This 441-nucleotide part of an RNA from Bifidobacterium reuteri belongs to the Rfam family "Bacterial large subunit ribosomal RNA". The family's consensus secondary structure is taken from published work. Lineage of the source: Bacteria > Bifidobacteriales > Bifidobacteriaceae > Bifidobacterium > Bifidobacterium reuteri.
RNA sequence: CUCUCCGAAAUGCAUUUGGGUGCAGCGUCGGGUGAGUGCUUGCGGGGGGUAGAGCUACUGGAUGCUUGAGGGCCCGUACUGGGUACCGACAGCAACCAAACUCCGAAUACCCGUCAAGUGUAUCCCGGCGGUGAGUCGGCGGGGGAUAAGCUCCGUCGUCGAGAGGGAGACAGCCCAGACCGUCGUCUAAGGUCCCCAAGCGCGUGCUAAGUGGGAAAGGAUGUGGAGUCGCAUAGACAGCCAGGAGGUUGGCUCAGAAGCAGCCAUCCUUGAAAGAGUGCGUAACAGCUCACUGGUCUAGUGGUUCCGCGCCGACAAUGUAGCGGGGCUCAAGCACGCCACCGAAGACGCGGCAAUGGUUUAGGCCAUUGGGUAGGAGAGCGUCCCCCGAGGGGCGAAGCGGCGGCGUGAGCCUGCCGUGGACUUCGGGGGAGUGAGAAU
Numbered sequence: 001c002u003c004u005c006c007g008a009a010a011u012g013c014a015u016u017u018g019g020g021u022g023c024a025g026c027g028u029c030g031g032g033u034g035a036g037u038g039c040u041u042g043c044g045g046g047g048g049g050u051a052g053a054g055c056u057a058c059u060g061g062a063u064g065c066u067u068g069a070g071g072g073c074c075c076g077u078a079c080u081g082g083g084u085a086c087c088g089a090c091a092g093c094a095a096c097c098a099a100a101c102u103c104c105g106a107a108u109a110c111c112c113g114u115c116a117a118g119u120g121u122a123u124c125c126c127g128g129c130g131g132u133g134a135g136u137c138g139g140c141g142g143g144g145g146a147u148a149a150g151c152u153c154c155g156u157c158g159u160c161g162a163g164a165g166g167g168a169g170a171c172a173g174c175c176c177a178g179a180c181c182g183u184c185g186u187c188u189a190a191g192g193u194c195c196c197c198a199a200g201c202g203c204g205u206g207c208u209a210a211g212u213g214g215g216a217a218a219g220g221a222u223g224u225g226g227a228g229u230c231g232c233a234u235a236g237a238c239a240g241c242c243a244g245g246a247g248g249u250u251g252g253c254u255c256a257g258a259a260g261c262a263g264c265c266a267u268c269c270u271u272g273a274a275a276g277a278g279u280g281c282g283u284a285a286c287a288g289c290u291c292a293c294u295g296g297u298c299u300a301g302u303g304g305u306u307c308c309g310c311g312c313c314g315a316c317a318a319u320g321u322a323g324c325g326g327g328g329c330u331c332a333a334g335c336a337c338g339c340c341a342c343c344g345a346a347g348a349c350g351c352g353g354c355a356a357u358g359g360u361u362u363a364g365g366c367c368a369u370u371g372g373g374u375a376g377g378a379g380a381g382c383g384u385c386c387c388c389c390g391a392g393g394g395g396c397g398a399a400g401c402g403g404c405g406g407c408g409u410g411a412g413c414c415u416g417c418c419g420u421g422g423a424c425u426u427c428g429g430g431g432g433a434g435u436g437a438g439a440a441u
Stems, first nucleotide, its partner, number of pairs: 001381006011024005026131001027129006037122001038119005043113004052104001053102002059098003063094004070087002072084005135160001137158008165176003180353004185349003191343003200340001202339006219313002223310010240297005246270003251265003271275001276291001280289002354371007382436001384433010400420005405414003